[Rfam]
Nucleotides: 075
Base pairs, nucleotide, nucleotide: 006070008068009067011065012064013063014062015061016060017059019057020056021055022054025052026051027050028049029048031046032044033043
Number, partner (000 for none) and nucleotide at each position: 001000a002000g003000u004000u005000a006070g007000g008068g009067c010000u011065g012064u013063u014062c015061u016060u017059c018000g019057c020056u021055g022054g023000a024000g025052u026051a027050g028049c029048u030000c031046u032044g033043u034000g035000a036000c037000u038000a039000u040000g041000g042000g043033a044032c045000c046031a047000u048029a049028g050027c051026u052025g053000c054022c055021u056020g057019g058000c059017g060016a061015a062014g063013a064012a065011u066000g067009g068008u069000c070006c071000c072000u073000u074000g075000a

Rfam assigns this 75-nucleotide RNA sequence from Branchiostoma floridae to the family "mir-4900 microRNA precursor family". Rfam's curators put it in the seed alignment. Rfam links the family to the GO terms RISC complex and miRNA-mediated post-transcriptional gene silencing. The source organism's lineage runs through Eukaryota, Eumetazoa, Amphioxiformes, Branchiostomatidae and Branchiostoma.